This 145-nucleotide sequence from Ciceribacter sp. L1K22 belongs to the Rfam family "Alphaproteobacterial sRNA ar7". On this family, see del Val et al., RNA Biol 2012: "A survey of sRNA families in alpha-proteobacteria". The family's RNA type in Rfam is small RNA. The pairing is the family consensus, mapped onto this sequence. Lineage of the source: Bacteria > Alphaproteobacteria > Hyphomicrobiales > Rhizobiaceae > Ciceribacter.

[Rfam]
Nucleotides: 145
Stems, first nucleotide, its partner, number of pairs: 025057006035049003061097011107141001110139010
Number, partner (000 for none) and nucleotide at each position: 001000c002000a003000c004000c005000g006000g007000c008000g009000a010000u011000u012000g013000a014000u015000c016000a017000c018000g019000c020000c021000g022000c023000a024000g025057u026056c027055u028054g029053a030052u031000a032000g033000u034000u035049g036048g037047c038000u039000c040000g041000u042000c043000c044000c045000c046000c047037g048036c049035c050000g051000c052030g053029u054028c055027a056026g057025a058000c059000u060000u061097g062096g063095g064094c065093a066092a067091a068090g069089g070088c071087c072000u073000u074000a075000u076000c077000c078000c079000c080000c081000u082000c083000u084000c085000c086000g087071g088070g089069c090068c091067u092066u093065u094064g095063u096062c097061c098000u099000a100000c101000u102000u103000u104000u105000u106000c107141a108000g109000a110139c111138c112137g113136c114135c115134a116133c117132g118131g119130c120000c121000c122000g123000c124000c125000u126000c127000c128000a129000a130119g131118c132117c133116g134115u135114g136113g137112c138111g139110g140000u141107u142000u143000u144000u145000g